[Rfam]
mir-7 microRNA precursor family: an 86-nucleotide RNA sequence from Hipposideros armiger. The family's consensus secondary structure was predicted with PFOLD. It scores 72 bits against the family's covariance model. The family has 132 seed sequences and 2,589 matches in Rfam 15.1. Its family is annotated with RISC complex and miRNA-mediated post-transcriptional gene silencing in the Gene Ontology. Rfam's curators write: This family represents the microRNA (miRNA) precursor mir-7.
RNA sequence: UGGUCCAGUGCUGUGUGGAAGACUAGUGAUUUUGUUGUUCUGAUGUAUGAUGACAACAAGUCACAGCUUCCUCAUAGCGUGGACUC
Numbered sequence: 001u002g003g004u005c006c007a008g009u010g011c012u013g014u015g016u017g018g019a020a021g022a023c024u025a026g027u028g029a030u031u032u033u034g035u036u037g038u039u040c041u042g043a044u045g046u047a048u049g050a051u052g053a054c055a056a057c058a059a060g061u062c063a064c065a066g067c068u069u070c071c072u073c074a075u076a077g078c079g080u081g082g083a084c085u086c
Base pairs, nucleotide, nucleotide: 002085003084004083005082006081008080009079011077012076013075014074015073017071018070020069021068023066024065026064027063028062029061030060031059032058034057035056036055037054038053039052